RNA sequence: AUUUCCACUGCUGCCCCGAGGAGGCCAGAUUCAAAGUUCCUGGAGAACUCUGCCUUUGUGAGAAGCUAGAAAUCUGCUUCUUUAAUACCAUCUCUAAGUUUUCCAUAGGCACACCAAGAAACC
Numbered sequence: 001a002u003u004u005c006c007a008c009u010g011c012u013g014c015c016c017c018g019a020g021g022a023g024g025c026c027a028g029a030u031u032c033a034a035a036g037u038u039c040c041u042g043g044a045g046a047a048c049u050c051u052g053c054c055u056u057u058g059u060g061a062g063a064a065g066c067u068a069g070a071a072a073u074c075u076g077c078u079u080c081u082u083u084a085a086u087a088c089c090a091u092c093u094c095u096a097a098g099u100u101u102u103c104c105a106u107a108g109g110c111a112c113a114c115c116a117a118g119a120a121a122c123c
Base pairs, nucleotide, nucleotide: 006069010066011065012064014062016060017058018057019056020055021054022051023050024049028039029038076122078120079119080118081117082116086111088109089108

Rfam assigns this 123-nucleotide RNA from Nannospalax galili to the family "ODC internal ribosome entry site (IRES)". Its family is annotated with ribosome binding in the Gene Ontology. The family has 13 seed sequences and 437 matches in Rfam 15.1. The organism belongs to Nannospalax, within Eukaryota.